[Rfam]
RNA sequence: CUCUCGUGAAGACGGCGACGAUACGCUCUCGUCGGCUUCACCUCCCUGUUGGACUGGCCGGGCCUUGUGCCCGGCCAUUUUU
Numbered sequence: 001c002u003c004u005c006g007u008g009a010a011g012a013c014g015g016c017g018a019c020g021a022u023a024c025g026c027u028c029u030c031g032u033c034g035g036c037u038u039c040a041c042c043u044c045c046c047u048g049u050u051g052g053a054c055u056g057g058c059c060g061g062g063c064c065u066u067g068u069g070c071c072c073g074g075c076c077a078u079u080u081u082u
Stems, first nucleotide, its partner, number of pairs: 008039004013034006056076008